[Rfam]
RNA sequence: CCCGCCACUGCGCCAGACCAGUGUGUGGUUGGCUGGUGCAAUCCAGUGGUGAGCUGAUACUAAACCCCAGCUUAGGAAACAGGGUUGCUCUCCACGUGGGUAACUCUGUGCCGAAAGCAUGGGAACAGCC
Numbered sequence: 001c002c003c004g005c006c007a008c009u010g011c012g013c014c015a016g017a018c019c020a021g022u023g024u025g026u027g028g029u030u031g032g033c034u035g036g037u038g039c040a041a042u043c044c045a046g047u048g049g050u051g052a053g054c055u056g057a058u059a060c061u062a063a064a065c066c067c068c069a070g071c072u073u074a075g076g077a078a079a080c081a082g083g084g085u086u087g088c089u090c091u092c093c094a095c096g097u098g099g100g101u102a103a104c105u106c107u108g109u110g111c112c113g114a115a116a117g118c119a120u121g122g123g124a125a126c127a128g129c130c
Stems, first nucleotide, its partner, number of pairs: 005049006017037005022031002065123003069120001070118004075112002080108006088100003

Small nucleolar RNA SNORA65: a 130-nucleotide RNA sequence from Phyllostomus discolor. The literature on the family includes a 2001 paper in EMBO J by Huttenhofer et al., "RNomics: an experimental approach that identifies 201 candidates for novel, small, non-messenger RNAs in mouse". Pairs were carried over by alignment from the consensus structure, which was predicted with RNAalifold. Clan: SNORA65 clan. It scores 131 bits against the family's covariance model. Rfam describes the family as follows. U65 belongs to the H/ACA class of snoRNAs which are thought to guide the sites of modification of uridines to pseudouridines.